[Rfam]
Shown here is a 138-nucleotide RNA from Sporolactobacillus inulinus, a member of the family "FMN riboswitch aptamer (RFN element)". A reference for the family is Vitreschak et al. (2002), "Regulation of riboflavin biosynthesis and transport genes in bacteria by transcriptional and translational attenuation", Nucleic Acids Res. A search with the family's covariance model found it, with a score of 117 bits. Rfam links the family to the GO term FMN binding. The RFN element is a highly conserved domain that is found frequently in the 5'-untranslated regions of prokaryotic mRNAs that encode for flavin mononucleotide (FMN) biosynthesis and transport proteins.

RNA sequence: UAUAUUCUUCGGGGCAGGGUGUAAUUCCCGACCGACGGUAAUAAGCAAGUAAGCUUAAAGUCCGUGACCCGCAAUUUUGCGGUGGAUCUAGUGAGAGUCUAGAACCGACAGUUAAAGUCUGGAUGGGAGAAGAAUUUA
Numbered sequence: 001u002a003u004a005u006u007c008u009u010c011g012g013g014g015c016a017g018g019g020u021g022u023a024a025u026u027c028c029c030g031a032c033c034g035a036c037g038g039u040a041a042u043a044a045g046c047a048a049g050u051a052a053g054c055u056u057a058a059a060g061u062c063c064g065u066g067a068c069c070c071g072c073a074a075u076u077u078u079g080c081g082g083u084g085g086a087u088c089u090a091g092u093g094a095g096a097g098u099c100u101a102g103a104a105c106c107g108a109c110a111g112u113u114a115a116a117g118u119c120u121g122g123a124u125g126g127g128a129g130a131a132g133a134a135u136u137u138a
Stems, first nucleotide, its partner, number of pairs: 004135007017029003031118002033107002035065004060105002069082002087103005109121003